[Rfam]
RNA: Molybdenum/Tungsten riboswitch aptamer (Moco RNA motif)
RNA sequence: CUAAAAAAAAUUCUCCGAGUCUUGUGCACCUGCAGACGUGAUGUUAUGGUGACCGGACCGGCAGGGUAUAUCGGGAAACCGGUAUGCCUCCCAUUGUGGAAAGGAGAGGAUUACCGGCCAUU
Numbered sequence: 001c002u003a004a005a006a007a008a009a010a011u012u013c014u015c016c017g018a019g020u021c022u023u024g025u026g027c028a029c030c031u032g033c034a035g036a037c038g039u040g041a042u043g044u045u046a047u048g049g050u051g052a053c054c055g056g057a058c059c060g061g062c063a064g065g066g067u068a069u070a071u072c073g074g075g076a077a078a079c080c081g082g083u084a085u086g087c088c089u090c091c092c093a094u095u096g097u098g099g100a101a102a103g104g105a106g107a108g109g110a111u112u113a114c115c116g117g118c119c120a121u122u
Base pairs, nucleotide, nucleotide: 011108012107013106014105015104016103019058020057021056022055024053025052027051028050029049030048035045036044037043038042064089065088066087067086068085069084070083071082072081073080074079090099091098